mir-548 microRNA precursor family: an 83-nucleotide sequence from Sapajus apella. It scores 91 bits against the family's covariance model. A reference for the family is Jima et al. (2010), "Deep sequencing of the small RNA transcriptome of normal and malignant human B cells identifies hundreds of novel microRNAs", Blood.
[Rfam]
RNA sequence: UAUUAGGUUGGUGCAAAAGUAAUCACAGUUUUUGCCAUUAAAAAUAAUGGCAAAACUGUGGUUACUUUUGCACCAGCCUAAUA
Numbered sequence: 001u002a003u004u005a006g007g008u009u010g011g012u013g014c015a016a017a018a019g020u021a022a023u024c025a026c027a028g029u030u031u032u033u034g035c036c037a038u039u040a041a042a043a044a045u046a047a048u049g050g051c052a053a054a055a056c057u058g059u060g061g062u063u064a065c066u067u068u069u070g071c072a073c074c075a076g077c078c079u080a081a082u083a
Stems, first nucleotide, its partner, number of pairs: 001083029031054010

Background
Its family is annotated with RISC complex and miRNA-mediated post-transcriptional gene silencing in the Gene Ontology. Lineage of the source: Eukaryota > Eumetazoa > Amniota > Eutheria > Sapajus. Rfam 15.1 lists 3,009 matches to the family in 27 species.